[Rfam]
RNA sequence: CGGGGAAGCGAGCAGACUCCCCGACCCCAAGACGCCACGCGUCCAAGUGCUGC
Numbered sequence: 001c002g003g004g005g006a007a008g009c010g011a012g013c014a015g016a017c018u019c020c021c022c023g024a025c026c027c028c029a030a031g032a033c034g035c036c037a038c039g040c041g042u043c044c045a046a047g048u049g050c051u052g053c
Base pairs, nucleotide, nucleotide: 001023002022003021004020005019006018012053013052014051015050031043032042033041034040035039

The record is a 53-nucleotide RNA from Ramlibacter sp. Leaf400, which matches "chrB-b RNA" in Rfam. A search with the family's covariance model found it, with a score of 50 bits. NCBI's taxonomy places the organism under Bacteria, Pseudomonadati, Betaproteobacteria, Comamonadaceae, Ramlibacter.